RNA sequence: GGCACGAGUAGAAGCGGUCAGGGGACGUGCCCGGGACAUUGCUCGCCAG
Numbered sequence: 001g002g003c004a005c006g007a008g009u010a011g012a013a014g015c016g017g018u019c020a021g022g023g024g025a026c027g028u029g030c031c032c033g034g035g036a037c038a039u040u041g042c043u044c045g046c047c048a049g
Base pairs, nucleotide, nucleotide: 005045006044007043008042009041010040015034018036019035021032022031023030
Rfam assigns this 49-nucleotide RNA from Zhengella mangrovi to the family "Xanthine riboswitch aptamer (NMT1 RNA)". Gene Ontology term of the family: purine nucleobase binding. The organism belongs to Zhengella, within Bacteria.